Rfam assigns this 106-nucleotide RNA sequence from Acerihabitans arboris to the family "Tryptophan operon leader".
Gene Ontology terms of the family: transcriptional attenuation by ribosome and tryptophan biosynthetic process.
The organism belongs to Acerihabitans, within Bacteria.
It scores 65 bits against the family's covariance model.
RNA sequence: CUUCGCUGGUGGCGCAUCUCCCUUUAGCGGGUGGUGUUAUCAUGCGUCGCUGUCGUCGGACAGAGCAAGAUCCCUACUAACCCGCCUUUCAAGCGGGUUUUUUUAU
Number, nucleotide and partner (000 for none) at each position: 001c000002u000003u000004c000005g000006c000007u000008g000009g043010u042011g041012g040013c000014g037015c036016a035017u034018c033019u000020c031021c030022c029023u000024u000025u000026a000027g000028c000029g022030g021031g020032u000033g018034g017035u016036g015037u014038u000039a000040u012041c011042a010043u009044g000045c000046g000047u000048c000049g000050c000051u000052g000053u000054c000055g000056u000057c000058g000059g000060a000061c000062a000063g000064a000065g000066c000067a000068a000069g000070a000071u000072c000073c000074c000075u000076a000077c000078u000079a099080a098081c097082c096083c095084g094085c093086c000087u000088u000089u000090c000091a000092a000093g085094c084095g083096g082097g081098u080099u079100u000101u000102u000103u000104u000105a000106u000